[Rfam]
This 89-nucleotide sequence from Chanos chanos belongs to the Rfam family "mir-204 microRNA precursor family". The family has 60 seed sequences and 1,730 matches in Rfam 15.1.
RNA sequence: AUGUGACUAGUGGACUUCCCUUUGUCAUCCUAUGCCUGGGGUCAUUGAAGGGGGCUGGGCAGGCAAAGGGACGUCUAGUCGUCAUCAUC
Numbered sequence: 001a002u003g004u005g006a007c008u009a010g011u012g013g014a015c016u017u018c019c020c021u022u023u024g025u026c027a028u029c030c031u032a033u034g035c036c037u038g039g040g041g042u043c044a045u046u047g048a049a050g051g052g053g054g055c056u057g058g059g060c061a062g063g064c065a066a067a068g069g070g071a072c073g074u075c076u077a078g079u080c081g082u083c084a085u086c087a088u089c
Stems, first nucleotide, its partner, number of pairs: 017071006024064002029059004034055004